[Rfam]
The family of this 132-nucleotide sequence from Lampropedia aestuarii is "SAH (S-adenosyl-L-homocysteine) riboswitch aptamer". It scores 44 bits against the family's covariance model. On this family, see Wang et al., Mol Cell 2008: "Riboswitches that sense S-adenosylhomocysteine and activate genes involved in coenzyme recycling".
RNA sequence: AUUUCCGAGGAGCGUUGCAGCAAUCGCCCAGCAUUGGCACAGAUUGCGAGGCUCGGACUUCAUGCUUGUUGGCAAACCCGUCUUUGAUGCAAAGAGGGAUUGGCCAGGCAUUCGCAACGACGCUCAACCGCU
Numbered sequence: 001a002u003u004u005c006c007g008a009g010g011a012g013c014g015u016u017g018c019a020g021c022a023a024u025c026g027c028c029c030a031g032c033a034u035u036g037g038c039a040c041a042g043a044u045u046g047c048g049a050g051g052c053u054c055g056g057a058c059u060u061c062a063u064g065c066u067u068g069u070u071g072g073c074a075a076a077c078c079c080g081u082c083u084u085u086g087a088u089g090c091a092a093a094g095a096g097g098g099a100u101u102g103g104c105c106a107g108g109c110a111u112u113c114g115c116a117a118c119g120a121c122g123c124u125c126a127a128c129c130g131c132u
Stems, first nucleotide, its partner, number of pairs: 004057005021046005